The record is a 76-nucleotide RNA sequence from Muraenolepis orangiensis, which matches "U1A polyadenylation inhibition element (PIE)" in Rfam. Gene Ontology term of the family: regulation of mRNA polyadenylation. NCBI's taxonomy places the organism under Eukaryota, Deuterostomia, Vertebrata, Muraenolepididae, Muraenolepis.
RNA sequence: UCAUAAAGCAUUGCACCCAGAGUCUGGUUCACCAGACAUUGAACCUGGAGCUUUUGUUUUUUAAAUAAACACCUUU
Number, nucleotide and partner (000 for none) at each position: 001u000002c000003a000004u000005a054006a053007a052008g051009c050010a000011u000012u000013g000014c000015a000016c000017c048018c047019a046020g045021a000022g037023u036024c035025u034026g033027g000028u000029u000030c000031a000032c000033c026034a025035g024036a023037c022038a000039u000040u000041g000042a000043a000044c000045c020046u019047g018048g017049a000050g009051c008052u007053u006054u005055u000056g000057u000058u000059u000060u000061u000062u000063a000064a000065a000066u000067a000068a000069a000070c000071a000072c000073c000074u000075u000076u000
Pairs were carried over by alignment from the consensus structure, which is taken from published work. A reference for the family is Clerte and Hall (2004), "Global and Local Dynamics of the U1A Polyadenylation Inhibition Element (PIE) RNA and PIE RNA-U1A Complexes", Biochemistry.